[Rfam]
RNA sequence: GCCAAAACGCGCUGUCUACACGCUUUGGCAAUCUGUACACCAGCUGUCCGUACCGACACGGGGACAGCGCAGAUGGACAAGGAGGG
Dot-bracket structure: ((((((.((.(.......).)).)))))).((((((......(((((((............)))))))))))))............
Numbered sequence: 001g002c003c004a005a006a007a008c009g010c011g012c013u014g015u016c017u018a019c020a021c022g023c024u025u026u027g028g029c030a031a032u033c034u035g036u037a038c039a040c041c042a043g044c045u046g047u048c049c050g051u052a053c054c055g056a057c058a059c060g061g062g063g064a065c066a067g068c069g070c071a072g073a074u075g076g077a078c079a080a081g082g083a084g085g086g
Stems, first nucleotide, its partner, number of pairs: 001029006008022002011019001031074006043068007